Rfam assigns this 83-nucleotide RNA from Anaerosacchariphilus polymeriproducens to the family "c-di-GMP-I riboswitch aptamer". Taxonomically the source falls in Anaerosacchariphilus (Bacteria, Bacillati, Bacillota, Lachnospirales). Clan: c-di-GMP_I riboswitch clan.

RNA sequence: AGAAUGAAAAGGUAAACCUGUUGAAAAGCAGGGACACAAAGCCAUAGGGUCUAAGCCAUAAGGUAUGACAGCCGGUUGCCAAU
Numbered sequence: 001a002g003a004a005u006g007a008a009a010a011g012g013u014a015a016a017c018c019u020g021u022u023g024a025a026a027a028g029c030a031g032g033g034a035c036a037c038a039a040a041g042c043c044a045u046a047g048g049g050u051c052u053a054a055g056c057c058a059u060a061a062g063g064u065a066u067g068a069c070a071g072c073c074g075g076u077u078g079c080c081a082a083u
Base pairs, nucleotide, nucleotide: 012037013036017032018031019030020029021028022027040077041076042075043074047073048072049069050068051067056063057062